[Rfam]
RNA sequence: CAAACGAGCGAUAAGACCGCUACAGAUUUCCAGAGCGUUCCCAUCCUUCGGUUGGUUAUAGCCCUGGUAGACCAAUCUGUAGGGCACGCUCAUUUU
Number, nucleotide and partner (000 for none) at each position: 001c000002a095003a094004a093005c000006g091007a000008g089009c088010g000011a000012u000013a000014a000015g000016a000017c000018c000019g000020c000021u000022a000023c079024a078025g077026a076027u075028u074029u000030c067031c066032a065033g064034a000035g062036c061037g000038u000039u000040c000041c055042c054043a053044u000045c051046c050047u000048u000049c000050g046051g045052u000053u043054g042055g041056u000057u000058a000059u000060a000061g036062c035063c000064c033065u032066g031067g030068u000069a000070g000071a000072c000073c000074a028075a027076u026077c025078u024079g023080u000081a000082g000083g000084g000085c000086a000087c000088g009089c008090u000091c006092a000093u004094u003095u002096u000